Notes:
Rfam assigns this 96-nucleotide RNA sequence from Treponema denticola to the family "TD-2 RNA".
RNA sequence: ACCGCCAUGGAAGGCGGUGGUUCCAUACUUCGAGAGUUUUGCUUUAGCAAAACUCUAAGAUGAAAAAUGUACACGGAUGUACAUUUUUCAUCGGUC
Number, nucleotide and partner (000 for none) at each position: 001a018002c017003c016004g015005c014006c013007a000008u000009g000010g000011a000012a000013g006014g005015c004016g003017g002018u001019g000020g000021u000022u000023c000024c000025a000026u000027a000028c000029u000030u000031c000032g000033a056034g055035a054036g053037u052038u051039u050040u049041g048042c047043u000044u000045u000046a000047g042048c041049a040050a039051a038052a037053c036054u035055c034056u033057a000058a000059g092060a091061u090062g089063a088064a087065a086066a085067a084068u083069g082070u081071a080072c079073a000074c000075g000076g000077a000078u000079g072080u071081a070082c069083a068084u067085u066086u065087u064088u063089c062090a061091u060092c059093g000094g000095u000096c000
The literature on the family includes a 2007 paper in Nucleic Acids Res by Weinberg et al., "Identification of 22 candidate structured RNAs in bacteria using the CMfinder comparative genomics pipeline". It is one of the family's seed sequences. NCBI's taxonomy places the organism under Bacteria, Pseudomonadati, Spirochaetota, Spirochaetia, Treponema denticola. Clan: TD (Treponema denticola) motifs. Rfam classes the family as a small RNA. Rfam 15.1 lists 310 matches to the family in 11 species.